[Rfam]
RNA sequence: CUGUUCUCUUGAGAGAUCAGAGGCGCAGAGUGCGUCAAUGUCAAUGAAGCCUGUGCCUUUUACCUCUUUAAGAGCGCAC
Numbered sequence: 001c002u003g004u005u006c007u008c009u010u011g012a013g014a015g016a017u018c019a020g021a022g023g024c025g026c027a028g029a030g031u032g033c034g035u036c037a038a039u040g041u042c043a044a045u046g047a048a049g050c051c052u053g054u055g056c057c058u059u060u061u062a063c064c065u066c067u068u069u070a071a072g073a074g075c076g077c078a079c
Base pairs, nucleotide, nucleotide: 002078003077004076006074007073008072009071010070011068012067013066014065015064019060020059021058022057023056024055025054026053027052028051032050033049035047036046037045
Rfam assigns this 79-nucleotide RNA from Bos taurus to the family "mir-6529 microRNA precursor family".